RNA sequence: GCGCCACAUCAAGAGUUGGGGCGACGCCCAACGCCAACCUGCCGCAUCCGGGCAAGGUGGCACUCCCUCGCGAUCCCUGCGAUUGGGAAGAUGUGGCCGAGCCGGCAAUCAAACGGAUCACG
Numbered sequence: 001g002c003g004c005c006a007c008a009u010c011a012a013g014a015g016u017u018g019g020g021g022c023g024a025c026g027c028c029c030a031a032c033g034c035c036a037a038c039c040u041g042c043c044g045c046a047u048c049c050g051g052g053c054a055a056g057g058u059g060g061c062a063c064u065c066c067c068u069c070g071c072g073a074u075c076c077c078u079g080c081g082a083u084u085g086g087g088a089a090g091a092u093g094u095g096g097c098c099g100a101g102c103c104g105g106c107a108a109u110c111a112a113a114c115g116g117a118u119c120a121c122g
Stems, first nucleotide, its partner, number of pairs: 006094005015032006033061003038057003041053003047116002096106004

Notes:
Rfam assigns this 122-nucleotide sequence from Tistrella mobilis to the family "SAM-I/IV (S-adenosyl methionine) riboswitch aptamer". Pairs were carried over by alignment from the consensus structure, which is taken from published work. NCBI's taxonomy places the organism under Bacteria, Geminicoccales, Geminicoccaceae, Tistrella, Tistrella mobilis. On this family, see Weinberg et al., RNA 2008: "The aptamer core of SAM-IV riboswitches mimics the ligand-binding site of SAM-I riboswitches".